[Rfam]
RNA: mir-301 microRNA precursor family
Organism: Neogobius melanostomus
RNA sequence: GGUGGUCUGUGGCUUUGACGUUGUUGCACUACUGUUCCAUCUCUAAAGCAGUGCAAUAGUAAUGUCAUAGCAUCAGCCCAUCGC
Numbered sequence: 001g002g003u004g005g006u007c008u009g010u011g012g013c014u015u016u017g018a019c020g021u022u023g024u025u026g027c028a029c030u031a032c033u034g035u036u037c038c039a040u041c042u043c044u045a046a047a048g049c050a051g052u053g054c055a056a057u058a059g060u061a062a063u064g065u066c067a068u069a070g071c072a073u074c075a076g077c078c079c080a081u082c083g084c
Base pairs, nucleotide, nucleotide: 002081003080004079007076008075009074012071013070014069016067017066018065019064023057024056025055026054027053028052029051030050034042